[Rfam]
Nucleotides: 081
Base pairs, nucleotide, nucleotide: 008073009072010071011070012069014067015066016065017064018063019062020061022059024057025056027054028053029052032049033048034047035046
Number, partner (000 for none) and nucleotide at each position: 001000a002000g003000g004000c005000c006000u007000g008073g009072a010071g011070a012069g013000u014067g015066a016065g017064g018063c019062a020061g021000g022059g023000u024057c025056u026000a027054a028053u029052u030000u031000u032049c033048a034047g035046c036000c037000u038000c039000c040000a041000u042000g043000g044000c045000a046035g047034c048033u049032g050000u051000u052029g053028a054027u055000c056025a057024g058000c059022c060000a061020u062019u063018g064017c065016c066015u067014c068000u069012c070011u071010c072009u073008u074000u075000u076000u077000c078000u079000c080000u081000g
Rfam assigns this 81-nucleotide RNA sequence from Pipistrellus kuhlii to the family "mir-574 microRNA precursor family".
For this family Rfam cites "Patterns of known and novel small RNAs in human cervical cancer" (Lui et al., Cancer Res, 2007).